[Rfam]
RNA sequence: GGAGUUGAUUAAACGAUCGCUGCUACCUUAAAAAGGUGGGAGAGGAAAGUCCGGGCUCCACAGAGCAUGGUGCCAGAUAACACCUGGGAGGUGCAAACCUACGGAAAGUGCCGCAGAAAAUAUACCGCCGAUCAUAAGUAAUUAGCAUCGGUAAGGGUGAAAAGGCGUGGUAAGAGCACACCGCACUAAUGGUAACAUUAGUGGCAUGGUAAACCCCACCAGGAGCAAGACCAAAUAGAAGGACAAGCGUGCGGCUCGUACGGUCCUUGGGUAGGUCGCUUGAGCAAUGUGGUGACACACUGCCUAGAUGAAUGAUCGUUGUGGUUUAUGUUGUAUAAACCAUACAGAACCCGGCUUAUAAAUUGGCUCCCUAU
Numbered sequence: 001g002g003a004g005u006u007g008a009u010u011a012a013a014c015g016a017u018c019g020c021u022g023c024u025a026c027c028u029u030a031a032a033a034a035g036g037u038g039g040g041a042g043a044g045g046a047a048a049g050u051c052c053g054g055g056c057u058c059c060a061c062a063g064a065g066c067a068u069g070g071u072g073c074c075a076g077a078u079a080a081c082a083c084c085u086g087g088g089a090g091g092u093g094c095a096a097a098c099c100u101a102c103g104g105a106a107a108g109u110g111c112c113g114c115a116g117a118a119a120a121u122a123u124a125c126c127g128c129c130g131a132u133c134a135u136a137a138g139u140a141a142u143u144a145g146c147a148u149c150g151g152u153a154a155g156g157g158u159g160a161a162a163a164g165g166c167g168u169g170g171u172a173a174g175a176g177c178a179c180a181c182c183g184c185a186c187u188a189a190u191g192g193u194a195a196c197a198u199u200a201g202u203g204g205c206a207u208g209g210u211a212a213a214c215c216c217c218a219c220c221a222g223g224a225g226c227a228a229g230a231c232c233a234a235a236u237a238g239a240a241g242g243a244c245a246a247g248c249g250u251g252c253g254g255c256u257c258g259u260a261c262g263g264u265c266c267u268u269g270g271g272u273a274g275g276u277c278g279c280u281u282g283a284g285c286a287a288u289g290u291g292g293u294g295a296c297a298c299a300c301u302g303c304c305u306a307g308a309u310g311a312a313u314g315a316u317c318g319u320u321g322u323g324g325u326u327u328a329u330g331u332u333g334u335a336u337a338a339a340c341c342a343u344a345c346a347g348a349a350c351c352c353g354g355c356u357u358a359u360a361a362a363u364u365g366g367c368u369c370c371c372u373a374u
Stems, first nucleotide, its partner, number of pairs: 001370010011359001012320007020042002023039006047357003051354005056225004063257004068221005073087004088102001089100004103216002108214002110210003125156002127152006135144003164182002167179003183205001184203008229277004239268006248262005284303003288299004